Nucleotides: 122
Base pairs, nucleotide, nucleotide: 001122002121003120004119005118006117007116008115009114010113011112012111013110014109015108016107017106018105020103021102023100024099025098026097027096030093031092032091033090035089036088037087038086039085041083045079046078047077048076
Number, partner (000 for none) and nucleotide at each position: 001122a002121a003120u004119a005118g006117g007116g008115a009114a010113a011112u012111g013110a014109c015108a016107a017106a018105u019000c020103a021102g022000a023100u024099u025098u026097u027096u028000u029000c030093u031092c032091u033090u034000g035089a036088u037087u038086u039085u040000u041083a042000a043000u044000u045079u046078u047077u048076u049000c050000c051000u052000c053000u054000u055000c056000a057000a058000a059000a060000a061000a062000u063000u064000c065000a066000a067000a068000u069000c070000c071000a072000a073000c074000u075000a076048a077047a078046a079045a080000u081000a082000c083041u084000a085039a086038a087037a088036a089035u090033a091032g092031g093030a094000a095000g096027a097026a098025a099024a100023a101000c102021u103020u104000a105018a106017u107016u108015u109014g110013u111012c112011a113010u114009u115008u116007u117006u118005c119004u120003a121002u122001u